[Rfam]
Annotation:
ctRNA: an 84-nucleotide sequence from Leuconostoc citreum. It is one of the family's seed sequences. It is annotated as an antisense RNA. For this family Rfam cites "Involvement of antisense RNA in replication control of the lactococcal plasmid pND324" (Duan et al., FEMS Microbiol Lett, 1998).
RNA sequence: UAUAAAUACGCUCCUUUGCGUUUUGUGUAAUAAGCAUAAAGAAAAACUUUUGGUCGGGAAUUUCUUUAUGCUUUUAUUGUACCA
Numbered sequence: 001u002a003u004a005a006a007u008a009c010g011c012u013c014c015u016u017u018g019c020g021u022u023u024u025g026u027g028u029a030a031u032a033a034g035c036a037u038a039a040a041g042a043a044a045a046a047c048u049u050u051u052g053g054u055c056g057g058g059a060a061u062u063u064c065u066u067u068a069u070g071c072u073u074u075u076a077u078u079g080u081a082c083c084a
Stems, first nucleotide, its partner, number of pairs: 004024003008021004032073013